RNA sequence: ACCUACACGUUCCGGGUUUCUUGACAAUUUGAACCUUUUUUUUAUAUUUUAUGGUUCGUUGUCGACGAAACCUGCAUUGUGUAGGA
Numbered sequence: 001a002c003c004u005a006c007a008c009g010u011u012c013c014g015g016g017u018u019u020c021u022u023g024a025c026a027a028u029u030u031g032a033a034c035c036u037u038u039u040u041u042u043u044a045u046a047u048u049u050u051a052u053g054g055u056u057c058g059u060u061g062u063c064g065a066c067g068a069a070a071c072c073u074g075c076a077u078u079g080u081g082u083a084g085g086a
Stems, first nucleotide, its partner, number of pairs: 002085005013074008031057005
A member of the RNA family "mir-981 microRNA precursor family" from Pediculus humanus, 86 nucleotides long. Its family is annotated with RISC complex and miRNA-mediated post-transcriptional gene silencing in the Gene Ontology. The family has 17 seed sequences and 180 matches in Rfam 15.1. The literature on the family includes a 2009 paper in BMC Genomics by Li et al., "Direct sequencing and expression analysis of a large number of miRNAs in Aedes aegypti and a multi-species survey of novel mosquito miRNAs".